[Rfam]
RNA sequence: GGGGGCGAAAAGGUCUCGACGGCGAGUCGGAGCCUUGAGCUGCAGGCAGGGUUGGCUGCCACACCUUAAAAAGGGUAGCAAGGCAAAAAUAAAUGCCGAACCAGAAUUUGCACUAGCUGCUUAAUGUAAGCAGCCGCUCUCCAAACUGAGGCUGCAUAAGUUUGGAAGAGCGUCAACCCAUGCAGCGGCUCUUAAGCAGUGGCACCAGCUGUUUAAGGGUGAAAAGAGUGGUGCUGGGCAGUGCGGUUGGGCUUCCUGGGCUGCACUGUCGAGACUUCACAGGAGGGCUAAGCCUGUAGACGCGAAAGGUGGCGGCUCGUCGGACGCGGGUUCGAUUCCCGCCGCCUCCACCA
Numbered sequence: 001g002g003g004g005g006c007g008a009a010a011a012g013g014u015c016u017c018g019a020c021g022g023c024g025a026g027u028c029g030g031a032g033c034c035u036u037g038a039g040c041u042g043c044a045g046g047c048a049g050g051g052u053u054g055g056c057u058g059c060c061a062c063a064c065c066u067u068a069a070a071a072a073g074g075g076u077a078g079c080a081a082g083g084c085a086a087a088a089a090u091a092a093a094u095g096c097c098g099a100a101c102c103a104g105a106a107u108u109u110g111c112a113c114u115a116g117c118u119g120c121u122u123a124a125u126g127u128a129a130g131c132a133g134c135c136g137c138u139c140u141c142c143a144a145a146c147u148g149a150g151g152c153u154g155c156a157u158a159a160g161u162u163u164g165g166a167a168g169a170g171c172g173u174c175a176a177c178c179c180a181u182g183c184a185g186c187g188g189c190u191c192u193u194a195a196g197c198a199g200u201g202g203c204a205c206c207a208g209c210u211g212u213u214u215a216a217g218g219g220u221g222a223a224a225a226g227a228g229u230g231g232u233g234c235u236g237g238g239c240a241g242u243g244c245g246g247u248u249g250g251g252c253u254u255c256c257u258g259g260g261c262u263g264c265a266c267u268g269u270c271g272a273g274a275c276u277u278c279a280c281a282g283g284a285g286g287g288c289u290a291a292g293c294c295u296g297u298a299g300a301c302g303c304g305a306a307a308g309g310u311g312g313c314g315g316c317u318c319g320u321c322g323g324a325c326g327c328g329g330g331u332u333c334g335a336u337u338c339c340c341g342c343c344g345c346c347u348c349c350a351c352c353a
Stems, first nucleotide, its partner, number of pairs: 001349007020322010032310005039303002043296005048066003055079006116134008135172006142164002145161003151189005190223001192221001201235006237270008247258001251288004256283002326342005
RNA: transfer-messenger RNA
Organism: Coprothermobacter proteolyticus